The family of this 130-nucleotide RNA sequence from Photobacterium profundum is "TPP riboswitch aptamer (THI element)". Vitamin B(1) in its active form thiamin pyrophosphate (TPP) is an essential coenzyme that is synthesised by coupling of pyrimidine and thiazole moieties in bacteria. The previously detected thiamin-regulatory element, thi box was extended, resulting in a new, highly conserved RNA secondary structure, the THI element, which is widely distributed in eubacteria and also occurs in some archaea.
RNA sequence: CCGUUCUCAUUGGGGAGCCCGUAUUUAUACAGAUGCACGUAGCAACUAGAGUACAGGCUGAGAUUGCAUCGCAGAACCCACAGAACCUGAACCAGGUCAUGCUGGCGUAGGAAUUGAGAAAAGAAGGUCG
Numbered sequence: 001c002c003g004u005u006c007u008c009a010u011u012g013g014g015g016a017g018c019c020c021g022u023a024u025u026u027a028u029a030c031a032g033a034u035g036c037a038c039g040u041a042g043c044a045a046c047u048a049g050a051g052u053a054c055a056g057g058c059u060g061a062g063a064u065u066g067c068a069u070c071g072c073a074g075a076a077c078c079c080a081c082a083g084a085a086c087c088u089g090a091a092c093c094a095g096g097u098c099a100u101g102c103u104g105g106c107g108u109a110g111g112a113a114u115u116g117a118g119a120a121a122a123g124a125a126g127g128u129c130g
Stems, first nucleotide, its partner, number of pairs: 006118004011080004017058003021054006065073003086111004092105004